[Rfam]
RNA sequence: UUUAUUUAUUUAUAUGGAGUUAGAACGUUUGCCUACGUUUGCCGCUGGAGACGCUGUUCCAACUGCAUACAAAUUUCAGUGA
Numbered sequence: 001u002u003u004a005u006u007u008a009u010u011u012a013u014a015u016g017g018a019g020u021u022a023g024a025a026c027g028u029u030u031g032c033c034u035a036c037g038u039u040u041g042c043c044g045c046u047g048g049a050g051a052c053g054c055u056g057u058u059c060c061a062a063c064u065g066c067a068u069a070c071a072a073a074u075u076u077c078a079g080u081g082a
Stems, first nucleotide, its partner, number of pairs: 008074004013069002016066001018064004023059005032050001034048001037045002
Rfam assigns this 82-nucleotide sequence from Bombyx mori to the family "mir-2807 microRNA precursor family". A search with the family's covariance model found it, with a score of 62 bits. On this family, see Liu et al., BMC Genomics 2010: "MicroRNAs of Bombyx mori identified by Solexa sequencing". Its family is annotated with RISC complex and miRNA-mediated post-transcriptional gene silencing in the Gene Ontology.